Source information
The family of this 162-nucleotide sequence from Blastococcus mobilis is "c-di-AMP riboswitch aptamer (ydaO/yuaA leader)". Rfam's curators write: This family represents a conserved RNA structure found upstream of the ydaO and yuaA genes in Bacillus subtilis and related genes in other bacteria.
RNA sequence: UGCCUGACUCCGACCCACCCAGGACGGGGGCGGGGGACCCAUCUCCCGGCGCGCCGCGCGCGCCUUGGGGUGAAGCCGCACCGUGCGUUCCACGGCACGGCGGCCGGGCACCGAUUCGCCCGAACCCGACAGCUCACCUCGUCGGCGGUGAUCGGAGGAUCA
Numbered sequence: 001u002g003c004c005u006g007a008c009u010c011c012g013a014c015c016c017a018c019c020c021a022g023g024a025c026g027g028g029g030g031c032g033g034g035g036g037a038c039c040c041a042u043c044u045c046c047c048g049g050c051g052c053g054c055c056g057c058g059c060g061c062g063c064c065u066u067g068g069g070g071u072g073a074a075g076c077c078g079c080a081c082c083g084u085g086c087g088u089u090c091c092a093c094g095g096c097a098c099g100g101c102g103g104c105c106g107g108g109c110a111c112c113g114a115u116u117c118g119c120c121c122g123a124a125c126c127c128g129a130c131a132g133c134u135c136a137c138c139u140c141g142u143c144g145g146c147g148g149u150g151a152u153c154g155g156a157g158g159a160u161c162a
Stems, first nucleotide, its partner, number of pairs: 001147004008029005030142006040067002068127003076103004106121004
Dot-bracket structure: ((((...(((((............)))))((((((....((........................))(((.....((((....................))))..((((........))))...))).........)))))).))))...............
Lineage of the source: Bacteria > Actinomycetota > Actinomycetes > Geodermatophilales > Blastococcus.